[Rfam]
The family of this 102-nucleotide RNA sequence from Maledivibacter halophilus is "Purine riboswitch aptamer". NCBI's taxonomy places the organism under Bacteria, Bacillati, Clostridia, Peptostreptococcales, Maledivibacter.

RNA sequence: AAUAAACAGAUUUAUAGCACUCAUAUAAAUCCAGAAAUAUGGUCUGGAAGUCUCUACCGGUCAACCUUAAAUUGUCCGACUAUGGGUGGAAUUAUUAUAGGA
Number, nucleotide and partner (000 for none) at each position: 001a000002a000003u000004a000005a000006a000007c000008a000009g000010a000011u000012u000013u000014a000015u000016a000017g000018c088019a087020c086021u085022c084023a083024u082025a081026u000027a000028a000029a000030u048031c047032c046033a045034g044035a043036a000037a000038u000039a000040u000041g000042g000043u035044c034045u033046g032047g031048a030049a000050g000051u000052c000053u000054c000055u000056a000057c000058c078059g077060g076061u000062c074063a073064a072065c000066c000067u000068u000069a000070a000071a000072u064073u063074g062075u000076c060077c059078g058079a000080c000081u025082a024083u023084g022085g021086g020087u019088g018089g000090a000091a000092u000093u000094a000095u000096u000097a000098u000099a000100g000101g000102a000